[Rfam]
RNA sequence: CUAUAUAUACCCUGUAGAACCGAAUUUGUGUGGUAUCCAUAUAGUCACAGAUUCGAUUCUAGGGGAAUAUAUGGU
Numbered sequence: 001c002u003a004u005a006u007a008u009a010c011c012c013u014g015u016a017g018a019a020c021c022g023a024a025u026u027u028g029u030g031u032g033g034u035a036u037c038c039a040u041a042u043a044g045u046c047a048c049a050g051a052u053u054c055g056a057u058u059c060u061a062g063g064g065g066a067a068u069a070u071a072u073g074g075u
Stems, first nucleotide, its partner, number of pairs: 002073006010065003016060004021055010
RNA: mir-10 microRNA precursor family